[Rfam]
RNA sequence: UGGUUGAAGUAGAGGCUGCCCGCUUCUCACCUGAGAUGACGCAUUUGCUGUUAGCAGGUAUGACACGUUGAAUUUAUUACGCUCGAAUGCGUAUGGAUAUAUAGCGGGCGGACAUCUUCUAAAUGUCCGUCUUUUUUUAUGGAC
Numbered sequence: 001u002g003g004u005u006g007a008a009g010u011a012g013a014g015g016c017u018g019c020c021c022g023c024u025u026c027u028c029a030c031c032u033g034a035g036a037u038g039a040c041g042c043a044u045u046u047g048c049u050g051u052u053a054g055c056a057g058g059u060a061u062g063a064c065a066c067g068u069u070g071a072a073u074u075u076a077u078u079a080c081g082c083u084c085g086a087a088u089g090c091g092u093a094u095g096g097a098u099a100u101a102u103a104g105c106g107g108g109c110g111g112a113c114a115u116c117u118u119c120u121a122a123a124u125g126u127c128c129g130u131c132u133u134u135u136u137u138u139a140u141g142g143a144c
Base pairs, nucleotide, nucleotide: 011027012026013025014024015023016022029059030058031057038052039051040050041048042047107131108130109129110128111127112126113125114124115123
RNA: Ribosomal protein L20 leader
Organism: Ureibacillus massiliensis